[Rfam]
RNA sequence: CAUGGUACUAUGAUGACCUAAUACUACCUUAUGCCGUUUACCCAACUGAGUAUUACUUUGAUGCAAAUCUAAAAACUGAGUACCAGU
Numbered sequence: 001c002a003u004g005g006u007a008c009u010a011u012g013a014u015g016a017c018c019u020a021a022u023a024c025u026a027c028c029u030u031a032u033g034c035c036g037u038u039u040a041c042c043c044a045a046c047u048g049a050g051u052a053u054u055a056c057u058u059u060g061a062u063g064c065a066a067a068u069c070u071a072a073a074a075a076c077u078g079a080g081u082a083c084c085a086g087u
Stems, first nucleotide, its partner, number of pairs: 001086001003085007
This 87-nucleotide sequence from Sarcophilus harrisii belongs to the Rfam family "Small nucleolar RNA SNORD87". The family has 10 seed sequences and 539 matches in Rfam 15.1. The family's RNA type in Rfam is C/D-box small nucleolar RNA. On this family, see Huttenhofer et al., EMBO J 2001: "RNomics: an experimental approach that identifies 201 candidates for novel, small, non-messenger RNAs in mouse".